[Rfam]
RNA sequence: CCACCCAACGUGAGUAUUGGAGGAAAUCAAACUCGGAGGCACUCAUUCAGAUAGAGAAUGUGAACUGUCUGUGUCGUCAAGUUUGUUUUCCUCCAAUAUCUCACAUUGGCUGG
Numbered sequence: 001c002c003a004c005c006c007a008a009c010g011u012g013a014g015u016a017u018u019g020g021a022g023g024a025a026a027u028c029a030a031a032c033u034c035g036g037a038g039g040c041a042c043u044c045a046u047u048c049a050g051a052u053a054g055a056g057a058a059u060g061u062g063a064a065c066u067g068u069c070u071g072u073g074u075c076g077u078c079a080a081g082u083u084u085g086u087u088u089u090c091c092u093c094c095a096a097u098a099u100c101u102c103a104c105a106u107u108g109g110c111u112g113g
Stems, first nucleotide, its partner, number of pairs: 005109004011103004016097006023090004028085003032081002
RNA: MIR2275 microRNA precursor family